The family of this 50-nucleotide RNA sequence from Nocardioides perillae is "L31-Actinobacteria ribosomal protein leader". By type it is a cis-regulatory leader. Lineage of the source: Bacteria > Bacillati > Actinomycetota > Nocardioidaceae > Nocardioides.
RNA sequence: CUGGUUCCGGCUCACACCGCGCGCGCCCGGCGCACGGUGACCCGGCGACU
Numbered sequence: 001c002u003g004g005u006u007c008c009g010g011c012u013c014a015c016a017c018c019g020c021g022c023g024c025g026c027c028c029g030g031c032g033c034a035c036g037g038u039g040a041c042c043c044g045g046c047g048a049c050u
Base pairs, nucleotide, nucleotide: 003050004049005048007045008044009043010042015039016038017037018036019035021033022032023031